[Rfam]
RNA sequence: GAACGAUGAAAGACAUGGGUAGUGAGACGUCGGAGCCUCGUCGUAUCACUAUUCUGUUUUUCGCCGAUCA
Numbered sequence: 001g002a003a004c005g006a007u008g009a010a011a012g013a014c015a016u017g018g019g020u021a022g023u024g025a026g027a028c029g030u031c032g033g034a035g036c037c038u039c040g041u042c043g044u045a046u047c048a049c050u051a052u053u054c055u056g057u058u059u060u061u062c063g064c065c066g067a068u069c070a
Stems, first nucleotide, its partner, number of pairs: 008062008017054003021050005027044003
A member of the RNA family "mir-71 microRNA precursor family" from Caenorhabditis briggsae, 70 nucleotides long. The literature on the family includes a 2008 paper in PLoS One by Yu et al., "The silkworm (Bombyx mori) microRNAs and their expressions in multiple developmental stages". It is one of the family's seed sequences. Rfam links the family to the GO terms miRNA-mediated post-transcriptional gene silencing and RISC complex. The family's consensus secondary structure was predicted with RNAalifold.